[Rfam]
RNA sequence: CUGCGGGGAUGAUCGCCCUGAACUCUCUCUUGCUGAUGGGCCGGUGGAGAAAUCUCUGAACAGGCUCUGAGUGGC
Numbered sequence: 001c002u003g004c005g006g007g008g009a010u011g012a013u014c015g016c017c018c019u020g021a022a023c024u025c026u027c028u029c030u031u032g033c034u035g036a037u038g039g040g041c042c043g044g045u046g047g048a049g050a051a052a053u054c055u056c057u058g059a060a061c062a063g064g065c066u067c068u069g070a071g072u073g074g075c
Stems, first nucleotide, its partner, number of pairs: 001074004